[Rfam]
This 80-nucleotide RNA from Galleria mellonella belongs to the Rfam family "mir-184 microRNA precursor family". On this family, see Chen et al., Genes Dev 2005: "The developmental miRNA profiles of zebrafish as determined by small RNA cloning". Its family is annotated with RISC complex and gene silencing by miRNA in the Gene Ontology.
RNA sequence: AAUGCGCUGUGCCCUUGUCAUUCUUCUUGCCCAGUGUUAUUACACUACUGGACGGAGAACUGAUAAGGGCAUAUCCAUUG
Numbered sequence: 001a002a003u004g005c006g007c008u009g010u011g012c013c014c015u016u017g018u019c020a021u022u023c024u025u026c027u028u029g030c031c032c033a034g035u036g037u038u039a040u041u042a043c044a045c046u047a048c049u050g051g052a053c054g055g056a057g058a059a060c061u062g063a064u065a066a067g068g069g070c071a072u073a074u075c076c077a078u079u080g
Stems, first nucleotide, its partner, number of pairs: 012069009021059006030051002